This 46-nucleotide sequence from Amphiprion percula belongs to the Rfam family "Histone 3' UTR stem-loop". Pairs were carried over by alignment from the consensus structure, which is taken from published work. A search with the family's covariance model found it, with a score of 38 bits. The family's RNA type in Rfam is cis-regulatory element. Gene Ontology term of the family: mRNA 3'-end processing by stem-loop binding and cleavage. For this family Rfam cites "Formation of the 3' end of histone mRNA" (Dominski and Marzluff, Gene, 1999).
RNA sequence: ACAACGGCUCUUUUAAGAGCCACACACUUGAUCUGCAGAGCUUUAG
Numbered sequence: 001a002c003a004a005c006g007g008c009u010c011u012u013u014u015a016a017g018a019g020c021c022a023c024a025c026a027c028u029u030g031a032u033c034u035g036c037a038g039a040g041c042u043u044u045a046g
Stems, first nucleotide, its partner, number of pairs: 006021006
Dot-bracket structure: .....((((((....)))))).........................